SAM riboswitch aptamer (S box leader): a 135-nucleotide sequence from Motilibacter peucedani. Rfam describes the family as follows. The SAM riboswitch is found upstream of a number of genes which code for proteins involved in methionine or cysteine biosynthesis in Gram-positive bacteria.

RNA sequence: UGCUCAUCCAGAGGGACUGAGGGAACGGCCCGUCGACGUCCCGGCAACCCUCCUCGAACGUCUUCGUCAGCACGAGGCCCGUCGAGGAGUAGGUGCCAACUCCGGCCUGCGGAAACUCCGCAGGGAAGAUGAGGA
Numbered sequence: 001u002g003c004u005c006a007u008c009c010a011g012a013g014g015g016a017c018u019g020a021g022g023g024a025a026c027g028g029c030c031c032g033u034c035g036a037c038g039u040c041c042c043g044g045c046a047a048c049c050c051u052c053c054u055c056g057a058a059c060g061u062c063u064u065c066g067u068c069a070g071c072a073c074g075a076g077g078c079c080c081g082u083c084g085a086g087g088a089g090u091a092g093g094u095g096c097c098a099a100c101u102c103c104g105g106c107c108u109g110c111g112g113a114a115a116c117u118c119c120g121c122a123g124g125g126a127a128g129a130u131g132a133g134g135a
Base pairs, nucleotide, nucleotide: 001135003133004132005131006130007129008128013042014041015040016039017038021031022030023029026104027103028102043097044096045095046094048093049092050089051088052087053086054085055084056083057082101127106124107123108122109121110120111119